[Rfam]
RNA: mir-124 microRNA precursor family
RNA sequence: UGCAAUUCGCUUUCACCAGUGACUUUGGUGUUAGCCAAUGCGACUAAGGCACGCGGUGAAUGCCAAUUGCG
Numbered sequence: 001u002g003c004a005a006u007u008c009g010c011u012u013u014c015a016c017c018a019g020u021g022a023c024u025u026u027g028g029u030g031u032u033a034g035c036c037a038a039u040g041c042g043a044c045u046a047a048g049g050c051a052c053g054c055g056g057u058g059a060a061u062g063c064c065a066a067u068u069g070c071g
Stems, first nucleotide, its partner, number of pairs: 003069004009063002012060005019054003023049007
Dot-bracket structure: ..((((..((.(((((..(((.(((((((.............)))))))..))).))))).))..))))..